[Rfam]
RNA: mir-2765 microRNA precursor family
Organism: Pediculus humanus
RNA sequence: GGCGUAUCGAGAUGUGGUAACUCCACCACCGUUGGCUGUUUUUAUUUAUUUCUGCCAACGGUGUAUGAGUUCCUCGAUUUCGUAACGUU
Numbered sequence: 001g002g003c004g005u006a007u008c009g010a011g012a013u014g015u016g017g018u019a020a021c022u023c024c025a026c027c028a029c030c031g032u033u034g035g036c037u038g039u040u041u042u043u044a045u046u047u048a049u050u051u052c053u054g055c056c057a058a059c060g061g062u063g064u065a066u067g068a069g070u071u072c073c074u075c076g077a078u079u080u081c082g083u084a085a086c087g088u089u
Base pairs, nucleotide, nucleotide: 003087004086005085008082009081010080011079012078016074017073019071020070021069022068023067027063029061030060031059032058033057034056035055036054